[Rfam]
Shown here is a 131-nucleotide sequence from Canis lupus, a member of the family "Small nucleolar RNA SNORA9". The base pairs follow the family's consensus structure, which was predicted with PFOLD. The match comes from Rfam's covariance-model search (111 bits). From the family's description: ACA9 is a member of the H/ACA class of snoRNA that guide the sites of modification of uridines to pseudouridines.
RNA sequence: CUGCAAGCCCCCAGCAUGGUUGGGUCUGGGGUGACCCUGCACGUUCCUGCAGUGCUUGAAAGAACAUUGUGAAAUGGUUUGACGCCUUGCUUUGCUCCAUCCAGAGCAAGAUGAUAGAAAUUUCAACAGUU
Numbered sequence: 001c002u003g004c005a006a007g008c009c010c011c012c013a014g015c016a017u018g019g020u021u022g023g024g025u026c027u028g029g030g031g032u033g034a035c036c037c038u039g040c041a042c043g044u045u046c047c048u049g050c051a052g053u054g055c056u057u058g059a060a061a062g063a064a065c066a067u068u069g070u071g072a073a074a075u076g077g078u079u080u081g082a083c084g085c086c087u088u089g090c091u092u093u094g095c096u097c098c099a100u101c102c103a104g105a106g107c108a109a110g111a112u113g114a115u116a117g118a119a120a121u122u123u124c125a126a127c128a129g130u131u
Stems, first nucleotide, its partner, number of pairs: 004058005017043002022037005070125005086110005092104003